A member of the RNA family "malK-I RNA", 167 nucleotides long. The sequence is in the family's curated seed alignment.

[Rfam]
RNA sequence: ACGAACAGCGGCAGUUCACUCCACUUUUUGACUGCCGUGCAGAAUAAAGGAGGAGAAUUGCUCCCUGGGGUUCGGGGUGCGGCAGUGUGGAGACCUGUCGUAAUGCGGUCCAAACCGCGAGAGCGCCGCAGGCGGAGGCCCGGUGUUCAGAGCCGCGAAUUAUGGCA
Numbered sequence: 001a002c003g004a005a006c007a008g009c010g011g012c013a014g015u016u017c018a019c020u021c022c023a024c025u026u027u028u029u030g031a032c033u034g035c036c037g038u039g040c041a042g043a044a045u046a047a048a049g050g051a052g053g054a055g056a057a058u059u060g061c062u063c064c065c066u067g068g069g070g071u072u073c074g075g076g077g078u079g080c081g082g083c084a085g086u087g088u089g090g091a092g093a094c095c096u097g098u099c100g101u102a103a104u105g106c107g108g109u110c111c112a113a114a115c116c117g118c119g120a121g122a123g124c125g126c127c128g129c130a131g132g133c134g135g136a137g138g139c140c141c142g143g144u145g146u147u148c149a150g151a152g153c154c155g156c157g158a159a160u161u162a163u164g165g166c167a
Base pairs, nucleotide, nucleotide: 008038009037010036011035012034013033014032016031017030018029063077064076065075066074067156069154070153071152072151073150078102079101080100081099082098083097084096085095087094088093105118106117107116108115109114121148122147123146124145125144126143127142128141131140132139133138
Rfam classes the family as a cis-regulatory element.